[Rfam]
RNA sequence: GGCAUCCACUAUAAGCGCAUUCGUAUAUCUCCGGCGAUAAGGGCCGGUGGUCUCUACCGGGAACCGUGAAUUCCCGACUACGAAGGAGCGGAGAGCAUCU
Numbered sequence: 001g002g003c004a005u006c007c008a009c010u011a012u013a014a015g016c017g018c019a020u021u022c023g024u025a026u027a028u029c030u031c032c033g034g035c036g037a038u039a040a041g042g043g044c045c046g047g048u049g050g051u052c053u054c055u056a057c058c059g060g061g062a063a064c065c066g067u068g069a070a071u072u073c074c075c076g077a078c079u080a081c082g083a084a085g086g087a088g089c090g091g092a093g094a095g096c097a098u099c100u
Base pairs, nucleotide, nucleotide: 018086020084021083022082023081024080025079029049031047032046033045034044035043058076059075060074061073062072063071
A member of the RNA family "Purine riboswitch aptamer" from Cohnella rhizosphaerae, 100 nucleotides long. NCBI's taxonomy places the organism under Bacteria, Bacilli, Caryophanales, Paenibacillaceae, Cohnella.